[Rfam]
RNA sequence: GGUACUUGUACACGUUGCGGAGCAACGAUAGUAAAAGA
Numbered sequence: 001g002g003u004a005c006u007u008g009u010a011c012a013c014g015u016u017g018c019g020g021a022g023c024a025a026c027g028a029u030a031g032u033a034a035a036a037g038a
Stems, first nucleotide, its partner, number of pairs: 005031002013027006
Rfam assigns this 38-nucleotide sequence from Parvimonas micra to the family "Selenocysteine insertion sequence 4".
The organism belongs to Parvimonas micra, within Bacteria.
The literature on the family includes a 2001 paper in Arch Microbiol by Graentzdoerffer et al., "Molecular analysis of the grd operon coding for genes of the glycine reductase and of the thioredoxin system from Clostridium sticklandii".
The base pairs follow the family's consensus structure, which was predicted with PFOLD.